[Rfam]
Annotation
mir-9256 microRNA precursor family: a 67-nucleotide RNA from Pipistrellus kuhlii. The family's consensus secondary structure was predicted with RNAalifold. The organism belongs to Pipistrellus, within Eukaryota. A search with the family's covariance model found it, with a score of 81 bits. Gene Ontology terms of the family: RISC complex and miRNA-mediated post-transcriptional gene silencing.
Nucleotides: 067
Stems, first nucleotide, its partner, number of pairs: 004064004009059009019049010
Number, partner (000 for none) and nucleotide at each position: 001000a002000u003000a004064u005063a006062c007061a008000c009059u010058g011057a012056g013055u014054g015053g016052c017051c018000u019049g020048a021047u022046u023045a024044u025043u026042a027041u028040g029000c030000a031000u032000u033000a034000a035000g036000a037000u038000a039000u040028c041027a042026u043025a044024a045023u046022a047021a048020u049019c050000u051017g052016g053015c054014c055013a056012c057011u058010c059009a060000a061007u062006g063005u064004a065000u066000a067000u